[Rfam]
RNA sequence: ACACGAGAAAGGAGGUGGUCUGAAGUUGUAUGACAUACGGACACGUGAGGUGGCCAUCCGCUGACGGCGGACCGCCUGUGACUUAGGCACUUUCGCCGUUGGCGAAUACCAGAUGGUCACCCGACCCCCGCACCCGACCGGUCCGGUCGAUGUGCCCGUCCACGACGGGUGGUGCGGGGGUCGUUCCGU
Numbered sequence: 001a002c003a004c005g006a007g008a009a010a011g012g013a014g015g016u017g018g019u020c021u022g023a024a025g026u027u028g029u030a031u032g033a034c035a036u037a038c039g040g041a042c043a044c045g046u047g048a049g050g051u052g053g054c055c056a057u058c059c060g061c062u063g064a065c066g067g068c069g070g071a072c073c074g075c076c077u078g079u080g081a082c083u084u085a086g087g088c089a090c091u092u093u094c095g096c097c098g099u100u101g102g103c104g105a106a107u108a109c110c111a112g113a114u115g116g117u118c119a120c121c122c123g124a125c126c127c128c129c130g131c132a133c134c135c136g137a138c139c140g141g142u143c144c145g146g147u148c149g150a151u152g153u154g155c156c157c158g159u160c161c162a163c164g165a166c167g168g169g170u171g172g173u174g175c176g177g178g179g180g181u182c183g184u185u186c187c188g189u
Base pairs, nucleotide, nucleotide: 014058015057016056017055018054019053059104060103061102062101063100064099065098067096068095069094070093122183123182124181125180126179127178128177129176130175131174132173133172134171135149136148137147138146